[Rfam]
RNA: Antisense RNA which regulates isiA expression
RNA sequence: GAUAUCCAUAGAUGAUUGCUGGAUUCAGCGUUGGCUCAGUCACGACACGAACAUCUUGAAUCGUCGCAUCAUAGAUUCCACCGAAGAACAUUGCUUUGGUAACGAGCAACAAUGCGCCGAUCCCUAACAACAAGAGAUGAUGACCUAAGAUAAAUCCGAGGGUUUCAGGCUUUUCCCA
Numbered sequence: 001g002a003u004a005u006c007c008a009u010a011g012a013u014g015a016u017u018g019c020u021g022g023a024u025u026c027a028g029c030g031u032u033g034g035c036u037c038a039g040u041c042a043c044g045a046c047a048c049g050a051a052c053a054u055c056u057u058g059a060a061u062c063g064u065c066g067c068a069u070c071a072u073a074g075a076u077u078c079c080a081c082c083g084a085a086g087a088a089c090a091u092u093g094c095u096u097u098g099g100u101a102a103c104g105a106g107c108a109a110c111a112a113u114g115c116g117c118c119g120a121u122c123c124c125u126a127a128c129a130a131c132a133a134g135a136g137a138u139g140a141u142g143a144c145c146u147a148a149g150a151u152a153a154a155u156c157c158g159a160g161g162g163u164u165u166c167a168g169g170c171u172u173u174u175c176c177c178a
Base pairs, nucleotide, nucleotide: 136175137174139172140171144169145168146167148165